[Rfam]
RNA: TPP riboswitch aptamer (THI element)
Organism: Corticibacter populi
Nucleotides: 133
Stems, first nucleotide, its partner, number of pairs: 007120004011083004017028004036076004089114003095108004
Number, partner (000 for none) and nucleotide at each position: 001000a002000g003000c004000c005000g006000u007120u008119c009118c010117u011083g012082g013081g014080g015000g016000u017028g018027c019026c020025c021000u022000g023000a024000c025020g026019g027018g028017c029000u030000g031000a032000g033000a034000c035000u036076c037075g038074g039073u040000u041000g042000c043000c044000a045000c046000a047000u048000g049000a050000c051000u052000g053000c054000c055000u056000u057000u058000g059000a060000g061000c062000g063000u064000g065000u066000g067000c068000g069000g070000c071000a072000c073039g074038c075037c076036g077000u078000a079000a080014c081013c082012c083011u084000u085000u086000g087000a088000a089114c090113c091112u092000g093000a094000u095108c096107c097106g098105g099000g100000u101000c102000a103000u104000g105098c106097c107096g108095g109000c110000g111000a112091a113090g114089g115000g116000a117010a118009g119008g120007a121000u122000g123000c124000a125000a126000g127000g128000c129000g130000g131000u132000u133000u